Iron response element I: a 33-nucleotide RNA sequence from Ailuropoda melanoleuca. A search with the family's covariance model found it, with a score of 34 bits. Rfam links the family to the GO term response to iron ion. The family has 62 seed sequences and 6,829 matches in Rfam 15.1.

[Rfam]
RNA sequence: UUGUCUUGUUUCAACAGUGUUUGGACAGAACAG
Dot-bracket structure: .(.(((.(.((((((...).))))))))))...
Numbered sequence: 001u002u003g004u005c006u007u008g009u010u011u012c013a014a015c016a017g018u019g020u021u022u023g024g025a026c027a028g029a030a031c032a033g
Stems, first nucleotide, its partner, number of pairs: 002030001004029003008026001010025005015019001